[Rfam]
RNA sequence: GCAUGGCUGAACACUGUGUUCUUUUUAUCAGUAAUUUACACAGCCAGACACCAUGGAAAAGUAGUUGUCCCUUUGGGAUGACAGAUGGUGUGUUAAGCUUUGUCAUGGCAUCUUUAUUUAAAGUGGAAACAAAU
Numbered sequence: 001g002c003a004u005g006g007c008u009g010a011a012c013a014c015u016g017u018g019u020u021c022u023u024u025u026u027a028u029c030a031g032u033a034a035u036u037u038a039c040a041c042a043g044c045c046a047g048a049c050a051c052c053a054u055g056g057a058a059a060a061g062u063a064g065u066u067g068u069c070c071c072u073u074u075g076g077g078a079u080g081a082c083a084g085a086u087g088g089u090g091u092g093u094u095a096a097g098c099u100u101u102g103u104c105a106u107g108g109c110a111u112c113u114u115u116a117u118u119u120a121a122a123g124u125g126g127a128a129a130c131a132a133a134u
Base pairs, nucleotide, nucleotide: 002055003054004053005052006051014043015042016041017040018039019038068127069126070125071123072122073121074120075119076118077117084115085114087112088111091110092109093108094107095106